[Rfam]
RNA sequence: CUCUUAUUCAGAGUGAUGGAGUUACAUAGGAACUGUGAAGUCACGGCAACCCCGCCAUGCGGAAGGUGCCAACCUGAGCGAGUAGUCGAACAAUAAGAG
Numbered sequence: 001c002u003c004u005u006a007u008u009c010a011g012a013g014u015g016a017u018g019g020a021g022u023u024a025c026a027u028a029g030g031a032a033c034u035g036u037g038a039a040g041u042c043a044c045g046g047c048a049a050c051c052c053c054g055c056c057a058u059g060c061g062g063a064a065g066g067u068g069c070c071a072a073c074c075u076g077a078g079c080g081a082g083u084a085g086u087c088g089a090a091c092a093a094u095a096a097g098a099g
Base pairs, nucleotide, nucleotide: 001099002098003097004096005095006094007093008092013044014043015042016041017040021033022032023031027078030075045070046069047068048067050066051065052062053061054060055059079088080087081086
Rfam assigns this 99-nucleotide RNA from Firmicutes bacterium CAG:424 to the family "SAM riboswitch aptamer (S box leader)". The family's consensus secondary structure is taken from published work. Lineage of the source: Bacteria > Bacillati > Bacillota.